[Rfam]
RNA sequence: AGCAAGUAUUUUAGGGUUAAGAAGCAAUUGUCUCUUGUACAAAUCGUGUAUUAAUCU
Numbered sequence: 001a002g003c004a005a006g007u008a009u010u011u012u013a014g015g016g017u018u019a020a021g022a023a024g025c026a027a028u029u030g031u032c033u034c035u036u037g038u039a040c041a042a043a044u045c046g047u048g049u050a051u052u053a054a055u056c057u
Stems, first nucleotide, its partner, number of pairs: 018037005024031002